[Rfam]
RNA sequence: UAACCACAAGGAGAUGGCGUUCUCCUUUAAGCGCCUCCUUCAAAAGAGGCUGAUAACGCCUACAAGCUC
Numbered sequence: 001u002a003a004c005c006a007c008a009a010g011g012a013g014a015u016g017g018c019g020u021u022c023u024c025c026u027u028u029a030a031g032c033g034c035c036u037c038c039u040u041c042a043a044a045a046g047a048g049g050c051u052g053a054u055a056a057c058g059c060c061u062a063c064a065a066g067c068u069c
Base pairs, nucleotide, nucleotide: 010025011024012023013022016060017059018058019057020056021055033050034049035048036047
About this RNA
Fluoride riboswitch aptamer (crcB RNA motif): a 69-nucleotide RNA sequence from Hydrogenobaculum sp. Y04AAS1. The base pairs follow the family's consensus structure, which is taken from published work. NCBI's taxonomy places the organism under Bacteria, Aquificota, Aquificales, Aquificaceae, Hydrogenobaculum.